This 133-nucleotide RNA from Hipposideros armiger belongs to the Rfam family "Small nucleolar RNA SNORA5". ACA5 is a member of the H/ACA class of snoRNA that guide the sites of modification of uridines to pseudouridines. The base pairs follow the family's consensus structure, which was predicted with RNAfold. Its Rfam clan is "SNORA5 clan".
[Rfam]
RNA sequence: CGCAGCCAUGUCAAAUUCAGUGCCCGCCCCUCCAUGGCGGACACUGGCCCAAAAGGCUGCCACAGAAACACUGUGGCUCAUGGGCCCUGAUCCCCUCUGCUGGGCCUCAGGGAUAAAUUGGUUACAGACACUG
Dot-bracket structure: .((((............(((((.(((((.......))))).)))))..........))))............((((((......(((((..................))))).......))))))........
Numbered sequence: 001c002g003c004a005g006c007c008a009u010g011u012c013a014a015a016u017u018c019a020g021u022g023c024c025c026g027c028c029c030c031u032c033c034a035u036g037g038c039g040g041a042c043a044c045u046g047g048c049c050c051a052a053a054a055g056g057c058u059g060c061c062a063c064a065g066a067a068a069c070a071c072u073g074u075g076g077c078u079c080a081u082g083g084g085c086c087c088u089g090a091u092c093c094c095c096u097c098u099g100c101u102g103g104g105c106c107u108c109a110g111g112g113a114u115a116a117a118u119u120g121g122u123u124a125c126a127g128a129c130a131c132u133g
Stems, first nucleotide, its partner, number of pairs: 002060004018046005024040005073125006085112005
Notes:
By type it is an H/ACA-box small nucleolar RNA. The match comes from Rfam's covariance-model search (122 bits).